[Rfam]
RNA sequence: UAUCUUUGCCGCUUGACAGAAAAUCUGUUCAUACAUAAAAAUCAUUAAAAUUAAUAUUGGAAUG
Numbered sequence: 001u002a003u004c005u006u007u008g009c010c011g012c013u014u015g016a017c018a019g020a021a022a023a024u025c026u027g028u029u030c031a032u033a034c035a036u037a038a039a040a041a042u043c044a045u046u047a048a049a050a051u052u053a054a055u056a057u058u059g060g061a062a063u064g
Base pairs, nucleotide, nucleotide: 015029016028017027018026019025

Shown here is a 64-nucleotide RNA from Gillisia limnaea, a member of the family "S15-Flavobacteria ribosomal protein leader". The literature on the family includes a 2020 paper in BMC Microbiol by Eckert and Weinberg, "Discovery of 20 novel ribosomal leader candidates in bacteria and archaea". The organism belongs to Gillisia limnaea, within Bacteria. Its Rfam clan is "Ribosomal Protein S15 Leader clan". Rfam classes the family as a cis-regulatory leader.